[Rfam]
Record summary: The record is a 63-nucleotide RNA from Lactococcus garvieae, which matches "Streptococcus sRNA SpF59 (ldcC RNA)" in Rfam. It is annotated as a small RNA. The source organism's lineage runs through Bacteria, Bacillati, Lactobacillales, Streptococcaceae and Lactococcus garvieae. For this family Rfam cites "Control of virulence by small RNAs in Streptococcus pneumoniae" (Mann et al., PLoS Pathog, 2012).

RNA sequence: GACUCGUUUUUGCUGUGAACAAGCGAAAACUAAGGCCAUACGGACAGCCAGAGUCACAGCCGA
Numbered sequence: 001g002a003c004u005c006g007u008u009u010u011u012g013c014u015g016u017g018a019a020c021a022a023g024c025g026a027a028a029a030c031u032a033a034g035g036c037c038a039u040a041c042g043g044a045c046a047g048c049c050a051g052a053g054u055c056a057c058a059g060c061c062g063a
Stems, first nucleotide, its partner, number of pairs: 001055005006030009